[Rfam]
ffh sRNA: a 52-nucleotide RNA from Rhizobiales bacterium PAR1. The match comes from Rfam's covariance-model search (52 bits). For this family Rfam cites "Identification of candidate structured RNAs in the marine organism 'Candidatus Pelagibacter ubique'" (Meyer et al., BMC Genomics, 2009). By type it is a small RNA. The family's consensus secondary structure is taken from published work.
RNA sequence: GCCUCGGGAGGUCAACGUCCGGCAGCGCAAUGCGCCCCCGGGCGCUUUGUUG
Number, nucleotide and partner (000 for none) at each position: 001g000002c000003c000004u000005c000006g000007g000008g000009a000010g000011g000012u000013c000014a000015a000016c044017g043018u042019c041020c040021g039022g038023c000024a000025g035026c034027g033028c032029a000030a000031u000032g028033c027034g026035c025036c000037c000038c022039c021040g020041g019042g018043c017044g016045c000046u000047u000048u000049g000050u000051u000052g000